[Rfam]
RNA sequence: AAUAGAAGCUGUUAGGUGAGGCUCCUAUGCGGAAAAUGCUACUGCUCAGAAACGUCGAGAAACGCCAAUGAGUCAGCUGUUCAGGUCAAUCGAAGGCCUGAUCUAACGUAGCUGUUAAGUGAUUAACUACGCCGUAUAGUGCUAAAACUCAACGACUAGCUAGACAC
Number, nucleotide and partner (000 for none) at each position: 001a000002a000003u000004a000005g000006a000007a161008g160009c159010u158011g153012u152013u094014a000015g149016g148017u147018g000019a000020g143021g142022c141023u000024c000025c139026u138027a137028u136029g135030c134031g133032g132033a000034a000035a000036a000037u000038g112039c111040u110041a109042c108043u000044g073045c072046u071047c070048a069049g000050a000051a000052a000053c064054g063055u062056c000057g000058a000059g000060a000061a000062a055063c054064g053065c000066c000067a000068a000069u048070g047071a046072g045073u044074c000075a000076g000077c000078u000079g103080u000081u101082c100083a000084g000085g097086u096087c095088a000089a000090u000091c000092g000093a000094a013095g087096g086097c085098c000099u000100g082101a081102u000103c079104u000105a000106a000107c000108g042109u041110a040111g039112c038113u000114g127115u126116u125117a000118a000119g000120u000121g000122a000123u000124u000125a116126a115127c114128u000129a000130c000131g000132c032133c031134g030135u029136a028137u027138a026139g025140u000141g022142c021143u020144a000145a000146a000147a017148c016149u015150c000151a000152a012153c011154g000155a000156c000157u000158a010159g009160c008161u007162a000163g000164a000165c000166a000167c000

About this RNA:
Rfam assigns this 167-nucleotide RNA sequence from Levilactobacillus brevis to the family "M-box riboswitch aptamer (ykoK leader)". Rfam describes the family as follows. M-box riboswitch, also know as ykoK leader is described as a metaloregulatory RNA that sense divalent metals and function as a genetic control element of genes related to divalent metal transport in bacteria. The sequence is in the family's curated seed alignment. The base pairs follow the family's consensus structure. The source organism's lineage runs through Bacteria, Bacillati, Lactobacillales, Lactobacillaceae and Levilactobacillus brevis.